[Rfam]
Shown here is a 79-nucleotide RNA sequence from Hermetia illucens, a member of the family "drz-agam-1 ribozyme". Taxonomically the source falls in Hermetia (Eukaryota, Panarthropoda, Diptera, Brachycera). On this family, see Webb et al., Science 2009: "Widespread occurrence of self-cleaving ribozymes".

RNA sequence: UACUACCAAAUCCUAUCUCCACCUCCACGUGGUGAUCGCUGGGAGUUCUUUCUGUUGCAAAAAUUGCAGACGAAGAAGG
Numbered sequence: 001u002a003c004u005a006c007c008a009a010a011u012c013c014u015a016u017c018u019c020c021a022c023c024u025c026c027a028c029g030u031g032g033u034g035a036u037c038g039c040u041g042g043g044a045g046u047u048c049u050u051u052c053u054g055u056u057g058c059a060a061a062a063a064u065u066g067c068a069g070a071c072g073a074a075g076a077a078g079g
Stems, first nucleotide, its partner, number of pairs: 012079003016075001018073002021033003044065004049060002052057001